Shown here is a 58-nucleotide RNA from Paracoccus denitrificans, a member of the family "sul1 RNA".
By type it is a riboswitch.
The source organism's lineage runs through Bacteria, Pseudomonadota, Alphaproteobacteria, Paracoccus and Paracoccus denitrificans.
It is one of the family's seed sequences.
[Rfam]
RNA sequence: CAUGGAGCCGGGUGCAACUCCCGGCUGGCUGUUCCGGCCGCCGAUCCGCCGGACAACC
Numbered sequence: 001c002a003u004g005g006a007g008c009c010g011g012g013u014g015c016a017a018c019u020c021c022c023g024g025c026u027g028g029c030u031g032u033u034c035c036g037g038c039c040g041c042c043g044a045u046c047c048g049c050c051g052g053a054c055a056a057c058c
Stems, first nucleotide, its partner, number of pairs: 006026006033053006